[Rfam]
RNA: U1 spliceosomal RNA
RNA sequence: AUACUUACCUGGACGGGGUCAAUGUGUGAUCAAGAAGGCCCAUGGCCUAGUAGUUGGCUUCCAUUGCACUUUAGGGAGUGUAUCUGCCUAAGGUCUCCCCAAGUGGGAGAGUCUACGUCAUAAUUUGUGGCAGUGGGGGCCUGCGUUCGCGCGGCCUCUGU
Dot-bracket structure: ...........((((((((((.((.((..........)).))))))))((((.(...(((((...........)))))...)..)).)).((((((.((.....)).))).))).))))..............(((((...((((....))))..))))).